The record is a 341-nucleotide RNA from Sphingomonadales bacterium EhC05, which matches "Alphaproteobacteria transfer-messenger RNA" in Rfam. A reference for the family is Williams (2002), "The tmRNA Website: invasion by an intron", Nucleic Acids Res. The organism belongs to Sphingomonadales, within Bacteria. Bacterial tmRNA, also known as 10Sa RNA or SsrA, is named for its dual tRNA and mRNA-like properties.

[Rfam]
RNA sequence: AUGCUUUUCAUUCCAGAUUAAGCGCCUAUAUGGAGUCUGUCCGCUUCGGUGGACUAUGGUGAUAAAUGAUGGUGUGUAAUAGACACAGCGGACCCGGGGGCGGUACCCGGCGGCUCCACCAUUCAAAGCGUUUCGACGCUCUGAUUGAAGGGGCCGAACUAGGAUCGACGUGUGUUCAAAAGCUCUAUUUUUGCCCGGCCUGAGUAUGCCGUGAUUGCUCAAAACCUAUAAGUGCAAACGAUAAUGAAGCACUCGCUAUUGCUGCCUAACCCAUUGACCUCACGGUUAUAAGUUAGAAAGCUAUGCGCGGUUGAACCCACCGGGCAACAGAAGGGAAUUCA
Numbered sequence: 001a002u003g004c005u006u007u008u009c010a011u012u013c014c015a016g017a018u019u020a021a022g023c024g025c026c027u028a029u030a031u032g033g034a035g036u037c038u039g040u041c042c043g044c045u046u047c048g049g050u051g052g053a054c055u056a057u058g059g060u061g062a063u064a065a066a067u068g069a070u071g072g073u074g075u076g077u078a079a080u081a082g083a084c085a086c087a088g089c090g091g092a093c094c095c096g097g098g099g100g101c102g103g104u105a106c107c108c109g110g111c112g113g114c115u116c117c118a119c120c121a122u123u124c125a126a127a128g129c130g131u132u133u134c135g136a137c138g139c140u141c142u143g144a145u146u147g148a149a150g151g152g153g154c155c156g157a158a159c160u161a162g163g164a165u166c167g168a169c170g171u172g173u174g175u176u177c178a179a180a181a182g183c184u185c186u187a188u189u190u191u192u193g194c195c196c197g198g199c200c201u202g203a204g205u206a207u208g209c210c211g212u213g214a215u216u217g218c219u220c221a222a223a224a225c226c227u228a229u230a231a232g233u234g235c236a237a238a239c240g241a242u243a244a245u246g247a248a249g250c251a252c253u254c255g256c257u258a259u260u261g262c263u264g265c266c267u268a269a270c271c272c273a274u275u276g277a278c279c280u281c282a283c284g285g286u287u288a289u290a291a292g293u294u295a296g297a298a299a300g301c302u303a304u305g306c307g308c309g310g311u312u313g314a315a316c317c318c319a320c321c322g323g324g325c326a327a328c329a330g331a332a333g334g335g336a337a338u339u340c341a
Stems, first nucleotide, its partner, number of pairs: 039054005058195005069188004074183002084174003088171003094110005111156007196211004201222001207217001308322004313340003318335001
Rfam classes the family as a non-coding RNA gene.